Overview:
Small nucleolar RNA Z105: a 75-nucleotide RNA from Vitis vinifera.
RNA sequence: GCAUGGUGAUGAUGAACUUAAGAUCUUCCGAUUGAUUCGUCAUGACAGGAAAAUAAUACCUCCUACUCAUUCUGA
Numbered sequence: 001g002c003a004u005g006g007u008g009a010u011g012a013u014g015a016a017c018u019u020a021a022g023a024u025c026u027u028c029c030g031a032u033u034g035a036u037u038c039g040u041c042a043u044g045a046c047a048g049g050a051a052a053a054u055a056a057u058a059c060c061u062c063c064u065a066c067u068c069a070u071u072c073u074g075a
Base pairs, nucleotide, nucleotide: 006070007069008068009067033044

NCBI's taxonomy places the organism under Eukaryota, Streptophytina, Gunneridae, Vitaceae, Vitis. A reference for the family is Chen et al. (2003), "The high diversity of snoRNAs in plants: identification and comparative study of 120 snoRNA genes from Oryza sativa", Nucleic Acids Res. It scores 46 bits against the family's covariance model. The family's consensus secondary structure was predicted with CMfinder.